RNA sequence: GGAUCCUGGUUCACAUUCAUCGCUGUCGGUGGGUUGGUGAUGCUGUCAGCUCGCCGGUCGAUGAAUGUCAGCCGUGUCUAU
Numbered sequence: 001g002g003a004u005c006c007u008g009g010u011u012c013a014c015a016u017u018c019a020u021c022g023c024u025g026u027c028g029g030u031g032g033g034u035u036g037g038u039g040a041u042g043c044u045g046u047c048a049g050c051u052c053g054c055c056g057g058u059c060g061a062u063g064a065a066u067g068u069c070a071g072c073c074g075u076g077u078c079u080a081u
Base pairs, nucleotide, nucleotide: 001081003079005076007074008073014067015066016065017064018063019062020061021060022059025058026057027056028055029054030053031052033050034049035048036047
Shown here is an 81-nucleotide sequence from Kryptolebias marmoratus, a member of the family "mir-181 microRNA precursor family". Its family is annotated with miRNA-mediated post-transcriptional gene silencing and RISC complex in the Gene Ontology. The base pairs follow the family's consensus structure, which was predicted with PFOLD. Lineage of the source: Eukaryota > Clupeocephala > Eurypterygia > Ovalentaria > Kryptolebias. On this family, see Ambros, Cell 2001: "microRNAs: tiny regulators with great potential". Rfam 15.1 lists 3,490 matches to the family in 650 species. A search with the family's covariance model found it, with a score of 47 bits.